[Rfam]
RNA: Small nucleolar RNA Z40
RNA sequence: GGAUGUUGUGAUGACUGGCAAACUGUUGGCUCUGAAUGGGCCGAAUGAACGUAGCCUUUCUGAACAUCC
Numbered sequence: 001g002g003a004u005g006u007u008g009u010g011a012u013g014a015c016u017g018g019c020a021a022a023c024u025g026u027u028g029g030c031u032c033u034g035a036a037u038g039g040g041c042c043g044a045a046u047g048a049a050c051g052u053a054g055c056c057u058u059u060c061u062g063a064a065c066a067u068c069c
Base pairs, nucleotide, nucleotide: 002068003067004066005065006064